[Rfam]
RNA: Fluoride riboswitch aptamer (crcB RNA motif)
Organism: Caloramator australicus
RNA sequence: GAAAUUAUAGGUGAUGGGGUUCACCUUAAUUGCCUUGUGCUGAUAACUCCUACUUUUGU
Numbered sequence: 001g002a003a004a005u006u007a008u009a010g011g012u013g014a015u016g017g018g019g020u021u022c023a024c025c026u027u028a029a030u031u032g033c034c035u036u037g038u039g040c041u042g043a044u045a046a047c048u049c050c051u052a053c054u055u056u057u058g059u
Stems, first nucleotide, its partner, number of pairs: 010025004016050006032040002